The family of this 190-nucleotide RNA from Populus trichocarpa is "MIR159 microRNA precursor family". Rfam's curators put it in the seed alignment. The literature on the family includes a 2006 paper in Genes Dev by Rajagopalan et al., "A diverse and evolutionarily fluid set of microRNAs in Arabidopsis thaliana".

[Rfam]
RNA sequence: GAUUAUGGAGUGGAGCUCCUUGAAGUCCAAUAGAAGCUCCUGCUGGGUAGAUCGAGCUGCUGAGCUAUGAAUCCCACAGCCCUAUCACCAUCAGUCAUUUUGAUGGGCCUGCGGCUUGCAUAUCUCAGGAGCUUUAUUACCUAAUGUUAGAUCUUUUUUUGGAUUGAAGGGAGCUCUAAACCUUUGAUCU
Dot-bracket structure: ............((((((((...((((((......(....................((.(((...((((....(.......................................)....))))...))).)).....................)......))))))...))))))))..............